Mu-gpT-DE RNA: a 53-nucleotide RNA.
RNA sequence: CCCUGACAGGUGCGUCCCGUGCCUGACUUAACCCAAGACAGGAGAUCAUCAUG
Numbered sequence: 001c002c003c004u005g006a007c008a009g010g011u012g013c014g015u016c017c018c019g020u021g022c023c024u025g026a027c028u029u030a031a032c033c034c035a036a037g038a039c040a041g042g043a044g045a046u047c048a049u050c051a052u053g
Stems, first nucleotide, its partner, number of pairs: 002042004007025005
The base pairs follow the family's consensus structure, which is taken from published work. Rfam classes the family as a small RNA.